[Rfam]
RNA sequence: ACAGUAUUAUAUUAAUUUAGCUGUUAAAGUAUGGAAAUACCAAUAAAUCAACGUUUUUCAACUUAUGAAAUGCUUGGUUCUCAUUAAAAAUGAUAUAUUUCCCUACCACAAAUCCCUGUCAAAAUGAUGCUUGACAGGGAUUUGUUC
Numbered sequence: 001a002c003a004g005u006a007u008u009a010u011a012u013u014a015a016u017u018u019a020g021c022u023g024u025u026a027a028a029g030u031a032u033g034g035a036a037a038u039a040c041c042a043a044u045a046a047a048u049c050a051a052c053g054u055u056u057u058u059c060a061a062c063u064u065a066u067g068a069a070a071u072g073c074u075u076g077g078u079u080c081u082c083a084u085u086a087a088a089a090a091u092g093a094u095a096u097a098u099u100u101c102c103c104u105a106c107c108a109c110a111a112a113u114c115c116c117u118g119u120c121a122a123a124a125u126g127a128u129g130c131u132u133g134a135c136a137g138g139g140a141u142u143u144g145u146u147c
Base pairs, nucleotide, nucleotide: 009099046079047078048077049076050075051074053073054072056070057069058068059067060066081093082092083091084090110143111142112141113140114139115138116137117136118135119134120133121132122131
RNA: Listeria sRNA rli38